[Rfam]
RNA sequence: GCCCUGGCGGGGAUAUCAUCGUAUACUGUAAGUUUGCUAUGAGACACUACAGUAUAGAUGAUGUACUAGCCCGGGUGC
Numbered sequence: 001g002c003c004c005u006g007g008c009g010g011g012g013a014u015a016u017c018a019u020c021g022u023a024u025a026c027u028g029u030a031a032g033u034u035u036g037c038u039a040u041g042a043g044a045c046a047c048u049a050c051a052g053u054a055u056a057g058a059u060g061a062u063g064u065a066c067u068a069g070c071c072c073g074g075g076u077g078c
Stems, first nucleotide, its partner, number of pairs: 007070002010067002013064008022056009032045003
Rfam assigns this 78-nucleotide RNA sequence from Ornithorhynchus anatinus to the family "mir-144 microRNA precursor family". It is one of the family's seed sequences. Pairs were carried over by alignment from the consensus structure, which was predicted with RNAalifold. Gene Ontology terms of the family: RISC complex and miRNA-mediated post-transcriptional gene silencing.